A member of the RNA family "c-di-AMP riboswitch aptamer (ydaO/yuaA leader)" from Pseudosporangium ferrugineum, 182 nucleotides long.
[Rfam]
RNA sequence: CGGUCGGUAACGCCGAAUCCUGCCGCCGACCGGGCCGGGACCUCAAUCGACAGGCAUGGAGCGGGGGACCCACAGGUUCCACGGCGCGCAAGCCGCGCGCCUCGGGGUGAAGCCGCCACGCGCGGCCGGGCUCCUCGGCCCGAACCCGACAGCUGACCUCGCAGGCGUGGAGGUUUCUUUCA
Numbered sequence: 001c002g003g004u005c006g007g008u009a010a011c012g013c014c015g016a017a018u019c020c021u022g023c024c025g026c027c028g029a030c031c032g033g034g035c036c037g038g039g040a041c042c043u044c045a046a047u048c049g050a051c052a053g054g055c056a057u058g059g060a061g062c063g064g065g066g067g068a069c070c071c072a073c074a075g076g077u078u079c080c081a082c083g084g085c086g087c088g089c090a091a092g093c094c095g096c097g098c099g100c101c102u103c104g105g106g107g108u109g110a111a112g113c114c115g116c117c118a119c120g121c122g123c124g125g126c127c128g129g130g131c132u133c134c135u136c137g138g139c140c141c142g143a144a145c146c147c148g149a150c151a152g153c154u155g156a157c158c159u160c161g162c163a164g165g166c167g168u169g170g171a172g173g174u175u176u177c178u179u180u181c182a
Base pairs, nucleotide, nucleotide: 011167012166013165014164018060019059020058061162062161063160064159065158066157071104105147106146107145113125114124115123116122128141129140130139131138
Dot-bracket structure: ..........((((...(((.....................................)))((((((....(................................)(((.....((((.....))))..((((......))))...))).........)))))).))))...............
Pairs were carried over by alignment from the consensus structure.